[Rfam]
RNA sequence: UCAGGUGUGGAAUUUAGAUAGAGUGGGUGUGUGCUCUUGUUUAAUUACACCAAGAUCACCACCCUCUAUCCAUAUCCCACAAUUGA
Numbered sequence: 001u002c003a004g005g006u007g008u009g010g011a012a013u014u015u016a017g018a019u020a021g022a023g024u025g026g027g028u029g030u031g032u033g034c035u036c037u038u039g040u041u042u043a044a045u046u047a048c049a050c051c052a053a054g055a056u057c058a059c060c061a062c063c064c065u066c067u068a069u070c071c072a073u074a075u076c077c078c079a080c081a082a083u084u085g086a
Stems, first nucleotide, its partner, number of pairs: 001086004007080004017070005025064005031059003035055005
Dot-bracket structure: ((((..((((......(((((...(((((.(((.(((((...........))))).)))))))).)))))......))))..))))
The record is an 86-nucleotide sequence from Lymphocryptovirus humangamma4, which matches "mir-BART16 microRNA precursor family" in Rfam.